The family of this 113-nucleotide RNA sequence is "DUF3800-I RNA". Rfam's curators write: Actinobacteria, Firmicutes, Fusobacteria, Proteobacteria (1 example), Tenericutes (2 examples). The base pairs follow the family's consensus structure, which is taken from published work. By type it is a small RNA. The sequence is in the family's curated seed alignment.
RNA sequence: UAAAGAUGCAGGUAGAAAUACGCUGCAUACUCGUGUAAGCGAAUUAGCGUUUAAGCGACAUGUAAUGUCGUCGCUCACGGGGGAGCCGCCUUCGGGCGGCUUUUUUUGCAAGG
Dot-bracket structure: ......((((((((....))).)))))..((((((..(((((((....)))...((((((.....))))))))))))))))(((((((((....)))))))))..........